[Rfam]
RNA: Small nucleolar RNA snoR77
Organism: Kingdonia uniflora
Nucleotides: 140
Base pairs, nucleotide, nucleotide: 002043003042004041005040007039008038010035011034013032014031015030017028067134068133069132074129075128081122082121083120084119085118087116089114092108093107
Number, partner (000 for none) and nucleotide at each position: 001000a002043g003042g004041u005040g006000g007039c008038c009000c010035c011034u012000u013032u014031a015030u016000g017028a018000c019000u020000g021000a022000a023000a024000a025000a026000g027000a028017u029000g030015g031014u032013a033000u034011g035010g036000a037000a038008g039007g040005u041004g042003u043002u044000a045000u046000u047000c048000u049000u050000c051000u052000c053000g054000a055000a056000a057000a058000u059000c060000a061000a062000a063000u064000u065000u066000u067134u068133u069132c070000u071000u072000u073000u074129g075128c076000a077000u078000a079000u080000c081122a082121g083120a084119u085118u086000u087116g088000u089114u090000g091000a092108g093107a094000u095000g096000a097000u098000u099000u100000u101000g102000g103000c104000c105000a106000u107093u108092u109000u110000c111000u112000g113000a114089a115000u116087c117000u118085a119084g120083u121082c122081u123000a124000g125000u126000a127000a128075g129074c130000u131000u132069g133068a134067a135000g136000a137000c138000a139000u140000u